[Rfam]
RNA sequence: GGCUGGUCCAAGUACAAUGGUGUUUACAACUAAUUGAUCACUAUCAGUUAUGAUUUGUUCCUUUUCCACUCCCACUAUUUCACUUGACUAGCCUAAA
Numbered sequence: 001g002g003c004u005g006g007u008c009c010a011a012g013u014a015c016a017a018u019g020g021u022g023u024u025u026a027c028a029a030c031u032a033a034u035u036g037a038u039c040a041c042u043a044u045c046a047g048u049u050a051u052g053a054u055u056u057g058u059u060c061c062u063u064u065u066c067c068a069c070u071c072c073c074a075c076u077a078u079u080u081c082a083c084u085u086g087a088c089u090a091g092c093c094u095a096a097a
Base pairs, nucleotide, nucleotide: 001093002092003091004090005089006088007087008086010085011084016076018074019073020072022071028059029058030057032055033054
Shown here is a 97-nucleotide RNA from Aotus nancymaae, a member of the family "Y RNA".
Y RNAs are components of the Ro ribonucleoprotein particle (Ro RNP), in association with Ro60 and La proteins.
Lineage of the source: Eukaryota > Chordata > Gnathostomata > Tetrapoda > Aotus.